[Rfam]
RNA sequence: GAAUGUAUUACUGGGUAACUACUCCUUUGGCAGUUAGUAAGUCAUUUGCUAACACUAACUGCCAAGGGAGAUUUGCCUGCAAUUCAUCA
Numbered sequence: 001g002a003a004u005g006u007a008u009u010a011c012u013g014g015g016u017a018a019c020u021a022c023u024c025c026u027u028u029g030g031c032a033g034u035u036a037g038u039a040a041g042u043c044a045u046u047u048g049c050u051a052a053c054a055c056u057a058a059c060u061g062c063c064a065a066g067g068g069a070g071a072u073u074u075g076c077c078u079g080c081a082a083u084u085c086a087u088c089a
Stems, first nucleotide, its partner, number of pairs: 005085001007083003011079001014077005022070004028064011

Notes
A member of the RNA family "mir-399 microRNA precursor family" from Helianthus annuus, 89 nucleotides long. The family has 13 seed sequences and 2,396 matches in Rfam 15.1. Rfam's curators write: mir-399 was identified in both Arabidopsis thaliana and Oryza sativa computationally and was later experimentally verified. mir-399 is thought to target mRNAs coding for a phosphatase transporter. The mature sequence is excised from the 3' arm of the hairpin. Its family is annotated with miRNA-mediated post-transcriptional gene silencing and RISC complex in the Gene Ontology. A search with the family's covariance model found it, with a score of 61 bits. A reference for the family is Jones-Rhoades and Bartel (2004), "Computational Identification of Plant MicroRNAs and Their Targets, Including a Stress-Induced miRNA", Mol Cell.